The record is a 370-nucleotide sequence from Caloramator mitchellensis, which matches "Bacterial RNase P class A" in Rfam.
The family's consensus secondary structure is taken from published work.
About the family: Ribonuclease P (RNase P) is a ubiquitous endoribonuclease, found in archaea, bacteria and eukarya as well as chloroplasts and mitochondria.
RNA sequence: UGAGUAAGCCGGAUGGUCGCUGCCGCUUUGCGGGAGAGGAAAGUCCGAGCUCCAUAGGGCAGGGUGCUGGGUAAUACCCAGUGGAGGCGACUCUAAGGAAAGUGCAACAGAGAUAUACCGCCAGAAUCAAUCAUUGAUUGAUGAAUGCAGCUAAUGCUGCCUGGUAAGGGUGGAAAGGUGAGGUAAGGGCUCACCAGCACACUGGCGACAGUGUGGCUCUGUAAACCCCACCUGGAGCAAGACCAAAUAGGGGAGCAUAAAGCGCUGGCCCGGCGUGCUCCCGGGUAGUGUCGCUUGAGCCAAUUGGUAACAAUUUGCCUAGAUAGAUGACCGUCUAAGACAGAACUCGGCUUAUAGGCUUACUCAAUAC
Numbered sequence: 001u002g003a004g005u006a007a008g009c010c011g012g013a014u015g016g017u018c019g020c021u022g023c024c025g026c027u028u029u030g031c032g033g034g035a036g037a038g039g040a041a042a043g044u045c046c047g048a049g050c051u052c053c054a055u056a057g058g059g060c061a062g063g064g065u066g067c068u069g070g071g072u073a074a075u076a077c078c079c080a081g082u083g084g085a086g087g088c089g090a091c092u093c094u095a096a097g098g099a100a101a102g103u104g105c106a107a108c109a110g111a112g113a114u115a116u117a118c119c120g121c122c123a124g125a126a127u128c129a130a131u132c133a134u135u136g137a138u139u140g141a142u143g144a145a146u147g148c149a150g151c152u153a154a155u156g157c158u159g160c161c162u163g164g165u166a167a168g169g170g171u172g173g174a175a176a177g178g179u180g181a182g183g184u185a186a187g188g189g190c191u192c193a194c195c196a197g198c199a200c201a202c203u204g205g206c207g208a209c210a211g212u213g214u215g216g217c218u219c220u221g222u223a224a225a226c227c228c229c230a231c232c233u234g235g236a237g238c239a240a241g242a243c244c245a246a247a248u249a250g251g252g253g254a255g256c257a258u259a260a261a262g263c264g265c266u267g268g269c270c271c272g273g274c275g276u277g278c279u280c281c282c283g284g285g286u287a288g289u290g291u292c293g294c295u296u297g298a299g300c301c302a303a304u305u306g307g308u309a310a311c312a313a314u315u316u317g318c319c320u321a322g323a324u325a326g327a328u329g330a331c332c333g334u335c336u337a338a339g340a341c342a343g344a345a346c347u348c349g350g351c352u353u354a355u356a357g358g359c360u361u362a363c364u365c366a367a368u369a370c
Stems, first nucleotide, its partner, number of pairs: 001366010011355001012335007020036002023033004041353003045350005050237004057271004062233005067081005082096001083094004097228002102226002104222003118169002120165005126158001128156001177195006197217001198215007241292003244288001251282006262276005299318002302315005